[Rfam]
RNA: U7 small nuclear RNA
Organism: Physeter macrocephalus
Nucleotides: 061
Base pairs, nucleotide, nucleotide: 034058035057036056037055038054039053040052041051042050044048
Number, partner (000 for none) and nucleotide at each position: 001000a002000a003000g004000u005000g006000u007000u008000a009000c010000a011000g012000c013000u014000c015000u016000u017000u018000u019000a020000g021000a022000a023000u024000u025000u026000g027000u028000c029000u030000a031000g032000c033000a034058g035057g036056u037055u038054u039053u040052u041051c042050g043000g044048g045000c046000c047000a048044c049000a050042u051041g052040g053039g054038a055037a056036a057035c058034c059000a060000c061000c